[Rfam]
RNA sequence: GUCGGGAGGGUGCGGAAUACAAUACCCGCAAGGGGAAUAACGCCGGCCUUUUCUAGUAGGUUUUCGAACCUCCCGACCACCCAUU
Numbered sequence: 001g002u003c004g005g006g007a008g009g010g011u012g013c014g015g016a017a018u019a020c021a022a023u024a025c026c027c028g029c030a031a032g033g034g035g036a037a038u039a040a041c042g043c044c045g046g047c048c049u050u051u052u053c054u055a056g057u058a059g060g061u062u063u064u065c066g067a068a069c070c071u072c073c074c075g076a077c078c079a080c081c082c083a084u085u
Stems, first nucleotide, its partner, number of pairs: 001077009012043003016038001025034003045062005
The family of this 85-nucleotide RNA sequence from Neisseria meningitidis is "sRNA-Xcc1". It scores 74 bits against the family's covariance model. The family's consensus secondary structure was predicted with RNAalifold. It is annotated as a small RNA.